[Rfam]
RNA: azaaromatic riboswitch aptamer (yjdF RNA)
Organism: Thermophilibacter immobilis
RNA sequence: CCUGUCGGAGAUAAAAACACGGCCCCGUCGGGUAGUCGGGGUGCGGCCGCGGCUUCGCGUGUCGCCAGUAACCUGCCUCCUUGGUUGUCCCUUCUCCGCGUGACGUUC
Numbered sequence: 001c002c003u004g005u006c007g008g009a010g011a012u013a014a015a016a017a018c019a020c021g022g023c024c025c026c027g028u029c030g031g032g033u034a035g036u037c038g039g040g041g042u043g044c045g046g047c048c049g050c051g052g053c054u055u056c057g058c059g060u061g062u063c064g065c066c067a068g069u070a071a072c073c074u075g076c077c078u079c080c081u082u083g084g085u086u087g088u089c090c091c092u093u094c095u096c097c098g099c100g101u102g103a104c105g106u107u108c
Stems, first nucleotide, its partner, number of pairs: 006098006022042006043065005075085003